[Rfam]
RNA sequence: AGCAAUAGAAUAGGCUAAAAGGGUCGGUCGGCUACCUCUCGAUAGAAGGGAGGGAUGCCUUGUGACAGUGUUCGAAGCAAUGAUGGUUAUGUUAACCUUUGGUUCGCUAAUCGUAGCGCUGCUGUCCAAUAAACGCAAAUAGACCGCCCCCUCAGCAAAGGUCUGCGGUCUAUUUGUCGUAGCUCCUGCUUGUGAAGCCAACCGCCCUUAAAAGCGGCUAUUGUGCACUGGGAGUCGUGUUAUCAGCACGGCUC
Numbered sequence: 001a002g003c004a005a006u007a008g009a010a011u012a013g014g015c016u017a018a019a020a021g022g023g024u025c026g027g028u029c030g031g032c033u034a035c036c037u038c039u040c041g042a043u044a045g046a047a048g049g050g051a052g053g054g055a056u057g058c059c060u061u062g063u064g065a066c067a068g069u070g071u072u073c074g075a076a077g078c079a080a081u082g083a084u085g086g087u088u089a090u091g092u093u094a095a096c097c098u099u100u101g102g103u104u105c106g107c108u109a110a111u112c113g114u115a116g117c118g119c120u121g122c123u124g125u126c127c128a129a130u131a132a133a134c135g136c137a138a139a140u141a142g143a144c145c146g147c148c149c150c151c152u153c154a155g156c157a158a159a160g161g162u163c164u165g166c167g168g169u170c171u172a173u174u175u176g177u178c179g180u181a182g183c184u185c186c187u188g189c190u191u192g193u194g195a196a197g198c199c200a201a202c203c204g205c206c207c208u209u210a211a212a213a214g215c216g217g218c219u220a221u222u223g224u225g226c227a228c229u230g231g232g233a234g235u236c237g238u239g240u241u242a243u244c245a246g247c248a249c250g251g252c253u254c
Stems, first nucleotide, its partner, number of pairs: 001224001004222003008218001011201001013199004020152004027144003035054002038052003064126007077092003102117003155177003202217004232254010
Shown here is a 254-nucleotide RNA from Paenibacillus albidus, a member of the family "BsrG". The base pairs follow the family's consensus structure, which was predicted with WAR. Rfam classes the family as a small RNA. Rfam links the family to the GO terms toxin activity and autolysis. Taxonomically the source falls in Paenibacillus (Bacteria, Bacillati, Bacillota, Paenibacillaceae). A reference for the family is Saito et al. (2008), "Novel small RNA-encoding genes in the intergenic regions of Bacillus subtilis", Gene.